Shown here is an 84-nucleotide RNA from Gasterosteus aculeatus, a member of the family "Small nucleolar RNA SNORD60". By type it is a C/D-box small nucleolar RNA. Its family is annotated with RNA processing and nucleolus in the Gene Ontology. Clan: SNORD60 clan. Pairs were carried over by alignment from the consensus structure, which was predicted with PFOLD. Rfam's curators put it in the seed alignment.

[Rfam]
RNA sequence: AGCCAGUGAUGACAAACAAACUUUUCUGACACCUCGUAUGAGAGCUGCACUGCGGCUCCUGAUUCUAACGCUGAUCUGAGGCUC
Numbered sequence: 001a002g003c004c005a006g007u008g009a010u011g012a013c014a015a016a017c018a019a020a021c022u023u024u025u026c027u028g029a030c031a032c033c034u035c036g037u038a039u040g041a042g043a044g045c046u047g048c049a050c051u052g053c054g055g056c057u058c059c060u061g062a063u064u065c066u067a068a069c070g071c072u073g074a075u076c077u078g079a080g081g082c083u084c
Base pairs, nucleotide, nucleotide: 001083002082003081004080044056045055046054047053048052